The record is a 96-nucleotide sequence from Lupinus albus, which matches "Small nucleolar RNA Z103" in Rfam. It is annotated as a C/D-box small nucleolar RNA. For this family Rfam cites "The high diversity of snoRNAs in plants: identification and comparative study of 120 snoRNA genes from Oryza sativa" (Chen et al., Nucleic Acids Res, 2003).
[Rfam]
RNA sequence: AUGGAUGUGAUGAUUAUUUCCCCAGAUGAUCGACGUUGAUAUAACUGUGCGAUUUUAUUUCUCUUUUGAGAAAUCAAGCCAAUUAAUCUGAUCCAU
Numbered sequence: 001a002u003g004g005a006u007g008u009g010a011u012g013a014u015u016a017u018u019u020c021c022c023c024a025g026a027u028g029a030u031c032g033a034c035g036u037u038g039a040u041a042u043a044a045c046u047g048u049g050c051g052a053u054u055u056u057a058u059u060u061c062u063c064u065u066u067u068g069a070g071a072a073a074u075c076a077a078g079c080c081a082a083u084u085a086a087u088c089u090g091a092u093c094c095a096u
Stems, first nucleotide, its partner, number of pairs: 001096005